[Rfam]
RNA sequence: GACGGUCAACGGGCACUGGCGUGCUCCCUCGGCUGCAAACCGGGUGUCUCGUGAUCGGUCACGAGGCUGGGUUCGAUUCCCAGGGACCGUC
Numbered sequence: 001g002a003c004g005g006u007c008a009a010c011g012g013g014c015a016c017u018g019g020c021g022u023g024c025u026c027c028c029u030c031g032g033c034u035g036c037a038a039a040c041c042g043g044g045u046g047u048c049u050c051g052u053g054a055u056c057g058g059u060c061a062c063g064a065g066g067c068u069g070g071g072u073u074c075g076a077u078u079c080c081c082a083g084g085g086a087c088c089g090u091c
Stems, first nucleotide, its partner, number of pairs: 001091007011026006027046001028044005048065005068082004
RNA: Selenocysteine transfer RNA